Rfam assigns this 140-nucleotide RNA from Ochotona princeps to the family "Small nucleolar RNA SNORD10". NCBI's taxonomy places the organism under Eukaryota, Bilateria, Gnathostomata, Lagomorpha, Ochotona.
RNA sequence: GCUCUGUGAUGAACCCCAUGCGUGUCAUCUGAGCCAUGGAUUCCCUUGUCACCUCAGCCCAGGGAGUGUUCUACUUCCCAGGCUGUUGUCUGCCCUGUCGGGGAGUCCUGGCAAAGGAUCAAACAUCAUACCCUGAGAGC
Numbered sequence: 001g002c003u004c005u006g007u008g009a010u011g012a013a014c015c016c017c018a019u020g021c022g023u024g025u026c027a028u029c030u031g032a033g034c035c036a037u038g039g040a041u042u043c044c045c046u047u048g049u050c051a052c053c054u055c056a057g058c059c060c061a062g063g064g065a066g067u068g069u070u071c072u073a074c075u076u077c078c079c080a081g082g083c084u085g086u087u088g089u090c091u092g093c094c095c096u097g098u099c100g101g102g103g104a105g106u107c108c109u110g111g112c113a114a115a116g117g118a119u120c121a122a123a124c125a126u127c128a129u130a131c132c133c134u135g136a137g138a139g140c
Stems, first nucleotide, its partner, number of pairs: 001140004044103005050097002
Rfam classes the family as a C/D-box small nucleolar RNA. The family has 22 seed sequences and 433 matches in Rfam 15.1. Pairs were carried over by alignment from the consensus structure, which was predicted with WAR.